[Rfam]
Rfam assigns this 87-nucleotide RNA from Triticum aestivum to the family "MIR1120/MIR1122 microRNA precursor family".
RNA sequence: CUACUCCCUCCGUCCCAUAAUAUAAGAUGCUUUUUGACACCAGUAUAGUGUCAAAAAGCGUCUUACAUUAUGAGACGGAGGGAGUAC
Numbered sequence: 001c002u003a004c005u006c007c008c009u010c011c012g013u014c015c016c017a018u019a020a021u022a023u024a025a026g027a028u029g030c031u032u033u034u035u036g037a038c039a040c041c042a043g044u045a046u047a048g049u050g051u052c053a054a055a056a057a058g059c060g061u062c063u064u065a066c067a068u069u070a071u072g073a074g075a076c077g078g079a080g081g082g083a084g085u086a087c
Base pairs, nucleotide, nucleotide: 003085004084005083007081008080009079010078011077013075014074016072017071019069020068021067023065024064025063026062027061028060029059030058031057032056033055034054035053036052037051038050039049040048
Rfam links the family to the GO terms RISC complex and miRNA-mediated post-transcriptional gene silencing. It scores 88 bits against the family's covariance model. Pairs were carried over by alignment from the consensus structure, which was predicted with RNAalifold.